[Rfam]
RNA sequence: UGGAGGACUGAGAAGGUUGAACAGCUUGUGUUGUGCUGUUGUAACUGGUUAUUACCUCCAAGAGUAACACACUAACUGCACAAUUAAAUCACUCUGUUCUAGGCAGAGCUGAUACGUGUGUUUGUGGGACAUUUU
Numbered sequence: 001u002g003g004a005g006g007a008c009u010g011a012g013a014a015g016g017u018u019g020a021a022c023a024g025c026u027u028g029u030g031u032u033g034u035g036c037u038g039u040u041g042u043a044a045c046u047g048g049u050u051a052u053u054a055c056c057u058c059c060a061a062g063a064g065u066a067a068c069a070c071a072c073u074a075a076c077u078g079c080a081c082a083a084u085u086a087a088a089u090c091a092c093u094c095u096g097u098u099c100u101a102g103g104c105a106g107a108g109c110u111g112a113u114a115c116g117u118g119u120g121u122u123u124g125u126g127g128g129a130c131a132u133u134u135u
Stems, first nucleotide, its partner, number of pairs: 002059005015046004020040006079126003083122001086119001088117001093112002096109004